[Rfam]
RNA sequence: CUAUGACAUAAAAAUCAUGGCAGAAGGAG
Dot-bracket structure: ((((((........)))))).........

Shown here is a 29-nucleotide RNA, a member of the family "L31-Firmicutes ribosomal protein leader". Clan: Ribosomal Protein L31 Leader clan. Rfam classes the family as a cis-regulatory leader. Rfam's curators put it in the seed alignment.